[Rfam]
RNA sequence: ACAGGAGUUCAAGGCCAUAGCAGAAGUGCUCACAGCACAGUCCUGUCAGAUUACAACAAAUCUGUGAAUUCUGCU
Dot-bracket structure: ............[[[...((((((((((.......))).].]]...((((((......))))))....)))))))
RNA: Mammalian CPEB3 ribozyme
Organism: Alligator mississippiensis